[Rfam]
RNA sequence: UGUCAUGGUAAUGGCUGACCAGGACUCCCUUACCUACACACGCCUCUGCUUAUAGGGGUGACGGCCAGUCCUGGUGUCAGGGUGAUU
Numbered sequence: 001u002g003u004c005a006u007g008g009u010a011a012u013g014g015c016u017g018a019c020c021a022g023g024a025c026u027c028c029c030u031u032a033c034c035u036a037c038a039c040a041c042g043c044c045u046c047u048g049c050u051u052a053u054a055g056g057g058g059u060g061a062c063g064g065c066c067a068g069u070c071c072u073g074g075u076g077u078c079a080g081g082g083u084g085a086u087u
Stems, first nucleotide, its partner, number of pairs: 002086005011077002018075009027064002030061001032059004040053001042049002
A member of the RNA family "Small nucleolar RNA SNORD86" from Otolemur garnettii, 87 nucleotides long. Rfam 15.1 lists 274 matches to the family in 139 species. A search with the family's covariance model found it, with a score of 63 bits. The base pairs follow the family's consensus structure, which was predicted with RNAalifold.